[Rfam]
RNA sequence: GAGGCUUGAAUGAAGAGCGCGUCCAAAAGCCGGCGCCGGAGCGGGCGCGCUCUGAGGGAACAAGCCUC
Numbered sequence: 001g002a003g004g005c006u007u008g009a010a011u012g013a014a015g016a017g018c019g020c021g022u023c024c025a026a027a028a029g030c031c032g033g034c035g036c037c038g039g040a041g042c043g044g045g046c047g048c049g050c051u052c053u054g055a056g057g058g059a060a061c062a063a064g065c066c067u068c
Base pairs, nucleotide, nucleotide: 001068002067003066004065005064015052016051017050018049019048020047021046022045023044024043030039031038032037
The record is a 68-nucleotide RNA from Menidia menidia, which matches "Selenocysteine insertion sequence 1" in Rfam. It is annotated as a cis-regulatory element. Rfam describes the family as follows. The incorporation of selenocysteine into a protein sequence is directed by an in-frame UGA codon (usually a stop codon) within the coding region of the mRNA. Selenoprotein mRNAs contain a conserved secondary structure in the 3' UTR that is required for the distinction of UGA stop from UGA selenocysteine. The selenocysteine insertion sequence (SECIS) is around 60 nt in length and adopts a hairpin structure which is sufficiently well-defined and conserved to act as a computational screen for selenoprotein genes. Gene Ontology term of the family: selenocysteine incorporation. Lineage of the source: Eukaryota > Chordata > Clupeocephala > Atherinopsidae > Menidia.